[Rfam]
RNA sequence: UUUUUACAUGCUUCUUCUGUGUAUAUAUUAAAAAAGCAUGGCAAAACAACUUCUUCUGUGUUAUGUUUUGCCAUGCUUUUUUUAAAACA
Numbered sequence: 001u002u003u004u005u006a007c008a009u010g011c012u013u014c015u016u017c018u019g020u021g022u023a024u025a026u027a028u029u030a031a032a033a034a035a036g037c038a039u040g041g042c043a044a045a046a047c048a049a050c051u052u053c054u055u056c057u058g059u060g061u062u063a064u065g066u067u068u069u070g071c072c073a074u075g076c077u078u079u080u081u082u083u084a085a086a087a088c089a
Stems, first nucleotide, its partner, number of pairs: 005027002008024004013019001034078013

Rfam assigns this 89-nucleotide sequence to the family "ctRNA". Gene Ontology terms of the family: plasmid copy number maintenance and mRNA binding. It scores 48 bits against the family's covariance model. The family's consensus secondary structure was predicted with ILM. About the family: Rolling circle replication plasmids contain a number of mechanisms to maintain a low copy number. It is annotated as an antisense RNA.